[Rfam]
RNA: sul1 RNA
RNA sequence: GGUGGACCCAGCUCGCUGGGUGGCUCGGCCGGGCGCCUAUCCCUCGGACAAUU
Numbered sequence: 001g002g003u004g005g006a007c008c009c010a011g012c013u014c015g016c017u018g019g020g021u022g023g024c025u026c027g028g029c030c031g032g033g034c035g036c037c038u039a040u041c042c043c044u045c046g047g048a049c050a051a052u053u
Stems, first nucleotide, its partner, number of pairs: 006021006029047005